[Rfam]
RNA sequence: AACUGUUCUCAGGGCGGGGUGUAAUUCCCUACCGGCGGUCAUAGUCCGCGAGCGCCAAUUCCAAACGGGAUUGGGUCAGCAGAGCCGGUGAAACUCCGGAACCGACGGUUAAAGUCCGGAUGGAAGAGAACGGUC
Dot-bracket structure: ..((((((((......(((.......))).[[((((((.....[[))))..((.........................))....((((.......)))).]])).(((.....]]))).......))))))))..

Background: Shown here is a 135-nucleotide sequence from Octadecabacter arcticus, a member of the family "FMN riboswitch aptamer (RFN element)". A search with the family's covariance model found it, with a score of 116 bits. Rfam links the family to the GO term FMN binding. The source organism's lineage runs through Bacteria, Pseudomonadota, Rhodobacterales, Octadecabacter and Octadecabacter arcticus.